[Rfam]
RNA sequence: AGCCUCCUUGUGCUUACCAAGUGUUCUUACACUGACAGUAUAGAAAGAGGAGGCAGAAUGAACCUACCCCAUGUACACCUCAGCCUAGGCCAUUGUGCCUGGUCUGUAUUGUGAAUGGGGAGACAUGG
Numbered sequence: 001a002g003c004c005u006c007c008u009u010g011u012g013c014u015u016a017c018c019a020a021g022u023g024u025u026c027u028u029a030c031a032c033u034g035a036c037a038g039u040a041u042a043g044a045a046a047g048a049g050g051a052g053g054c055a056g057a058a059u060g061a062a063c064c065u066a067c068c069c070c071a072u073g074u075a076c077a078c079c080u081c082a083g084c085c086u087a088g089g090c091c092a093u094u095g096u097g098c099c100u101g102g103u104c105u106g107u108a109u110u111g112u113g114a115a116u117g118g119g120g121a122g123a124c125a126u127g128g
Stems, first nucleotide, its partner, number of pairs: 002054007021032004067120006081106003085102006